tpke11: a 77-nucleotide RNA from Pantoea ananatis. In Yersinia located in ICR upstream dnaJ (chaperone)gene. Has temperature responsive RNA structure. The literature on the family includes a 2001 paper in Curr Biol by Rivas et al., "Computational identification of noncoding RNAs in E. coli by comparative genomics". Its family is annotated with response to temperature stimulus in the Gene Ontology. Rfam classes the family as a small RNA. Taxonomically the source falls in Pantoea ananatis (Bacteria, Pseudomonadati, Pseudomonadota, Pantoea). The base pairs follow the family's consensus structure, which was predicted with WAR.

RNA sequence: GACAGCCGUUGAAACCAGCACGGGCGUAGGAGUUUUCUCCACGCCCGUGCGAUCAUGUUAAGGGCUAAAUAAAUGGC
Numbered sequence: 001g002a003c004a005g006c007c008g009u010u011g012a013a014a015c016c017a018g019c020a021c022g023g024g025c026g027u028a029g030g031a032g033u034u035u036u037c038u039c040c041a042c043g044c045c046c047g048u049g050c051g052a053u054c055a056u057g058u059u060a061a062g063g064g065c066u067a068a069a070u071a072a073a074u075g076g077c
Stems, first nucleotide, its partner, number of pairs: 005015001018050009029039002